[Rfam]
RNA: mir-8799 microRNA precursor family
Organism: Canis lupus
RNA sequence: AGGGGGAGCACCAGAUCUUGGGCUGUGUCCCCGGUGCCCUGUGCCCUGGGCCUGCGCUGUUGGAUUUGCAUUCCCUGUCACGCACCCCCUU
Numbered sequence: 001a002g003g004g005g006g007a008g009c010a011c012c013a014g015a016u017c018u019u020g021g022g023c024u025g026u027g028u029c030c031c032c033g034g035u036g037c038c039c040u041g042u043g044c045c046c047u048g049g050g051c052c053u054g055c056g057c058u059g060u061u062g063g064a065u066u067u068g069c070a071u072u073c074c075c076u077g078u079c080a081c082g083c084a085c086c087c088c089c090u091u
Base pairs, nucleotide, nucleotide: 001091002090003089004088005087006086011082014078017077020074021073022072024070025069026068027067028064029063031062032059033058034057035056036055037054041052043051044050045049